Lysine riboswitch aptamer: a 178-nucleotide sequence from Clostridium tepidiprofundi. From the family's description: Riboswitches are metabolite binding domains within certain messenger RNAs that serve as precision sensors for their corresponding targets. The match comes from Rfam's covariance-model search (124 bits).

RNA sequence: ACGAUUGGUAGAGGCGCAGUGUUUAAGAGUACUGUUAUUGAGGUAAGCACGAUGAUAUAACAGGAAAGGAAGUACUGCCGAAGGGUACAGUUGAUGCUUUAAGAUUGUAUUCCUGGGCUUGCACAUAACAUGUGUAAGACUGUCACAAAUAUUCUAUUUGUGGAGAGCUAUCAUUCAU
Numbered sequence: 001a002c003g004a005u006u007g008g009u010a011g012a013g014g015c016g017c018a019g020u021g022u023u024u025a026a027g028a029g030u031a032c033u034g035u036u037a038u039u040g041a042g043g044u045a046a047g048c049a050c051g052a053u054g055a056u057a058u059a060a061c062a063g064g065a066a067a068g069g070a071a072g073u074a075c076u077g078c079c080g081a082a083g084g085g086u087a088c089a090g091u092u093g094a095u096g097c098u099u100u101a102a103g104a105u106u107g108u109a110u111u112c113c114u115g116g117g118c119u120u121g122c123a124c125a126u127a128a129c130a131u132g133u134g135u136a137a138g139a140c141u142g143u144c145a146c147a148a149a150u151a152u153u154c155u156a157u158u159u160g161u162g163g164a165g166a167g168c169u170a171u172c173a174u175u176c177a178u
Base pairs, nucleotide, nucleotide: 006173007172008171009170010169011168016078017077018076019075020074021073022072023071024070032063033062034061035060036059037058038057082114083113084112085111086109087108088107089106090105091104092103115141116140118138119137120136121135122134123133124132125131143163144162145161146160147159148158149157